The family of this 68-nucleotide RNA from Mycolicibacterium tokaiense is "ASdes TB sRNA". A reference for the family is Arnvig and Young (2009), "Identification of small RNAs in Mycobacterium tuberculosis", Mol Microbiol. Lineage of the source: Bacteria > Actinomycetota > Mycobacteriaceae > Mycobacterium > Mycobacterium (subgen. Mycolicibacterium). The match comes from Rfam's covariance-model search (76 bits).
RNA sequence: AGGUCCACCGGAUCGAUGGCGCGGGUCACCACCAGGUAGUCGCGCAGGGCGAUGCCGUGCCUGUUCUC
Numbered sequence: 001a002g003g004u005c006c007a008c009c010g011g012a013u014c015g016a017u018g019g020c021g022c023g024g025g026u027c028a029c030c031a032c033c034a035g036g037u038a039g040u041c042g043c044g045c046a047g048g049g050c051g052a053u054g055c056c057g058u059g060c061c062u063g064u065u066c067u068c
Base pairs, nucleotide, nucleotide: 004063008059011030013028015027016026017025035056036055037054038053040052041051042050043049
Source information: The family's consensus secondary structure is taken from published work.